[Rfam]
RNA sequence: GGUCUCUGACUUGGGUAGAGUGGCACCUGGUCCGUGGUGCCAGCCUCAUAUUAGUCUAGGGUGAAGCAAUUCCUCAUUUAUCCCAGCUUAGCUUUGGGUCCGUGCUGCUGCCUGGUUCAUGCCCUGGACACACAG
Numbered sequence: 001g002g003u004c005u006c007u008g009a010c011u012u013g014g015g016u017a018g019a020g021u022g023g024c025a026c027c028u029g030g031u032c033c034g035u036g037g038u039g040c041c042a043g044c045c046u047c048a049u050a051u052u053a054g055u056c057u058a059g060g061g062u063g064a065a066g067c068a069a070u071u072c073c074u075c076a077u078u079u080a081u082c083c084c085a086g087c088u089u090a091g092c093u094u095u096g097g098g099u100c101c102g103u104g105c106u107g108c109u110g111c112c113u114g115g116u117u118c119a120u121g122c123c124c125u126g127g128a129c130a131c132a133c134a135g
Stems, first nucleotide, its partner, number of pairs: 002062004008056001011054004018047003022041006077128004091122002097118002100115003104111002
A member of the RNA family "Small nucleolar RNA SNORA48" from Crocuta crocuta, 135 nucleotides long. From the family's description: The snoRNA ACA 48 has been identified to guide pseudouridylation of the residue U3797 in the 28S rRNA subunit. The base pairs follow the family's consensus structure, which was predicted with RNAalifold. Lineage of the source: Eukaryota > Eumetazoa > Euteleostomi > Boreoeutheria > Crocuta.